The family of this 78-nucleotide RNA sequence from Nannospalax galili is "mir-3473 microRNA precursor family".
Gene Ontology terms of the family: RISC complex, cellular response to mechanical stimulus and miRNA-mediated post-transcriptional gene silencing.
The organism belongs to Nannospalax, within Eukaryota.
[Rfam]
RNA sequence: ACCACUGAGCCAUCUUUCCAGCCCCUAAAUUAGCUUUUAAAAUUUGGAAAUAUAGGGCUGGAGAGAUGGCUCAGCGGU
Numbered sequence: 001a002c003c004a005c006u007g008a009g010c011c012a013u014c015u016u017u018c019c020a021g022c023c024c025c026u027a028a029a030u031u032a033g034c035u036u037u038u039a040a041a042a043u044u045u046g047g048a049a050a051u052a053u054a055g056g057g058c059u060g061g062a063g064a065g066a067u068g069g070c071u072c073a074g075c076g077g078u
Stems, first nucleotide, its partner, number of pairs: 002077002005074020